Small nucleolar RNA snoR104: a 118-nucleotide RNA sequence from Paspalum vaginatum. Gene Ontology terms of the family: RNA processing and nucleolus. The family has 8 seed sequences and 612 matches in Rfam 15.1. The match comes from Rfam's covariance-model search (79 bits).
[Rfam]
RNA sequence: AGGUAGCAUUCAGAACAAAAGAUGCCCACCUGAUACAAUCUUCCUAAAGUAAACUUGUCAUUUCCUGCUUGUGGUAUCGUGAGUGAGAUCUGCAAGUCUCAAAUGACAAAACACCCAU
Numbered sequence: 001a002g003g004u005a006g007c008a009u010u011c012a013g014a015a016c017a018a019a020a021g022a023u024g025c026c027c028a029c030c031u032g033a034u035a036c037a038a039u040c041u042u043c044c045u046a047a048a049g050u051a052a053a054c055u056u057g058u059c060a061u062u063u064c065c066u067g068c069u070u071g072u073g074g075u076a077u078c079g080u081g082a083g084u085g086a087g088a089u090c091u092g093c094a095a096g097u098c099u100c101a102a103a104u105g106a107c108a109a110a111a112c113a114c115c116c117a118u
Stems, first nucleotide, its partner, number of pairs: 001031003006025005056111001058109001067097008077087001